The family of this 199-nucleotide RNA from Oryza rufipogon is "MIR1435 microRNA precursor family". The base pairs follow the family's consensus structure, which was predicted with RNAalifold. NCBI's taxonomy places the organism under Eukaryota, Viridiplantae, Streptophytina, Spermatophyta, Oryza.
RNA sequence: UGACUUUGGUCAAAGUCAAACUGCUUUAAGUUUGACCAAGUUUAUAGAAAAAAUAAUAACAUUUUCAACCCAAGACAAAUUUAUUAUGAAAAUAUAUUCAAUUAUUGAUUUGAUGAAACUAAUUUAGUAUUAUAAAUAUUACUAUAUUUGUCUAUAAACUUAGUCAAACUUGAAACAGUUUGACUUUGUCCAAAGUCAA
Numbered sequence: 001u002g003a004c005u006u007u008g009g010u011c012a013a014a015g016u017c018a019a020a021c022u023g024c025u026u027u028a029a030g031u032u033u034g035a036c037c038a039a040g041u042u043u044a045u046a047g048a049a050a051a052a053a054u055a056a057u058a059a060c061a062u063u064u065u066c067a068a069c070c071c072a073a074g075a076c077a078a079a080u081u082u083a084u085u086a087u088g089a090a091a092a093u094a095u096a097u098u099c100a101a102u103u104a105u106u107g108a109u110u111u112g113a114u115g116a117a118a119c120u121a122a123u124u125u126a127g128u129a130u131u132a133u134a135a136a137u138a139u140u141a142c143u144a145u146a147u148u149u150g151u152c153u154a155u156a157a158a159c160u161u162a163g164u165c166a167a168a169c170u171u172g173a174a175a176c177a178g179u180u181u182g183a184c185u186u187u188g189u190c191c192a193a194a195g196u197c198a199a
Stems, first nucleotide, its partner, number of pairs: 005194005011188013025174002031168005045154004050149003054144002058140002061137004067131001071127001073125003